This 150-nucleotide sequence from Bifiguratus adelaidae belongs to the Rfam family "U12 minor spliceosomal RNA". Clan: U2 clan. Its family is annotated with U12 snRNP, pre-mRNA branch point binding and mRNA branch site recognition in the Gene Ontology.
[Rfam]
RNA sequence: ACGCCUCAAUUUAAAGAGUAAGGAUAAUAUACGACUGGGUUAACUCCUAGUCCACUCUAUCUAAUCUUUGGCGGGUGAUAUGGACAUGGCCUUCACUCGUCCUCUCAUCACCUACUUUGUGGUGAGAAGUUGACGUGUGAAUGUUGGCUA
Numbered sequence: 001a002c003g004c005c006u007c008a009a010u011u012u013a014a015a016g017a018g019u020a021a022g023g024a025u026a027a028u029a030u031a032c033g034a035c036u037g038g039g040u041u042a043a044c045u046c047c048u049a050g051u052c053c054a055c056u057c058u059a060u061c062u063a064a065u066c067u068u069u070g071g072c073g074g075g076u077g078a079u080a081u082g083g084a085c086a087u088g089g090c091c092u093u094c095a096c097u098c099g100u101c102c103u104c105u106c107a108u109c110a111c112c113u114a115c116u117u118u119g120u121g122g123u124g125a126g127a128a129g130u131u132g133a134c135g136u137g138u139g140a141a142u143g144u145u146g147g148c149u150a
Stems, first nucleotide, its partner, number of pairs: 004023003008019001033052007081150003085146001088145003092141003098132002101129001103127003107123005